[Rfam]
RNA sequence: AAACGACAAGGGCAAACUUUAGGUAAACUUAGAGGACGCAAAACUAAAGGGCCUUUUAAAUGGCAGCCAGUUACCGAA
Numbered sequence: 001a002a003a004c005g006a007c008a009a010g011g012g013c014a015a016a017c018u019u020u021a022g023g024u025a026a027a028c029u030u031a032g033a034g035g036a037c038g039c040a041a042a043a044c045u046a047a048a049g050g051g052c053c054u055u056u057u058a059a060a061u062g063g064c065a066g067c068c069a070g071u072u073a074c075c076g077a078a
Stems, first nucleotide, its partner, number of pairs: 012039002017034006042072004049068002051064003
Dot-bracket structure: ...........((...((((((......))))))...))..((((...(((((........)))..))))))......
Rfam assigns this 78-nucleotide sequence from Senegalia massiliensis to the family "c-di-GMP-I riboswitch aptamer". NCBI's taxonomy places the organism under Bacteria, Clostridia, Eubacteriales, Clostridiaceae, Senegalia. Its family is annotated with cyclic-di-GMP binding in the Gene Ontology.